Source information
The record is a 64-nucleotide RNA sequence from Oryza sativa, which matches "MIR2907 microRNA precursor family" in Rfam. The family's consensus secondary structure was predicted with RNAalifold. It scores 62 bits against the family's covariance model. Rfam 15.1 lists 136 matches to the family in 8 species.

[Rfam]
RNA sequence: CAGCACCUCCUGCUCUGCUCACUCGGCCGCCACGUGGCAGCCGGGUGAGGGCCUCGGGGUGGUG
Dot-bracket structure: ((.(..((((......((((.((((((..((....))..))))))...))))...))))..)))